[Rfam]
RNA sequence: AGCGCGGGCCGGGCCCCUCUGACGGUCGUACAGCGACGGCCGUGAUGUCGGACCGCAUCG
Dot-bracket structure: .....((.((((.........((((((((......))))))))....)))).))......
Numbered sequence: 001a002g003c004g005c006g007g008g009c010c011g012g013g014c015c016c017c018u019c020u021g022a023c024g025g026u027c028g029u030a031c032a033g034c035g036a037c038g039g040c041c042g043u044g045a046u047g048u049c050g051g052a053c054c055g056c057a058u059c060g
Stems, first nucleotide, its partner, number of pairs: 006054002009051004022043008

A member of the RNA family "terC RNA" from Sphingopyxis italica, 60 nucleotides long. The base pairs follow the family's consensus structure, which is taken from published work. The organism belongs to Sphingopyxis, within Bacteria. It is annotated as a cis-regulatory element.